RNA sequence: AUAAAAAAACCUGCAAGCAAUAGUGCUUACAGGUUCCUUCUAUAUCCUUCAAAAAAGGAAAGAAGGUAAAGGGAGAGGAGAAACCGGAGGAAGAACUUAUGGGGAAACGUAAGUCUUCUCCGCGG
Numbered sequence: 001a002u003a004a005a006a007a008a009a010c011c012u013g014c015a016a017g018c019a020a021u022a023g024u025g026c027u028u029a030c031a032g033g034u035u036c037c038u039u040c041u042a043u044a045u046c047c048u049u050c051a052a053a054a055a056a057g058g059a060a061a062g063a064a065g066g067u068a069a070a071g072g073g074a075g076a077g078g079a080g081a082a083a084c085c086g087g088a089g090g091a092a093g094a095a096c097u098u099a100u101g102g103g104g105a106a107a108c109g110u111a112a113g114u115c116u117u118c119u120c121c122g123c124g125g
Stems, first nucleotide, its partner, number of pairs: 011032003015028005035073005045060001047058003085122004090118004095114005
RNA: ylbH leader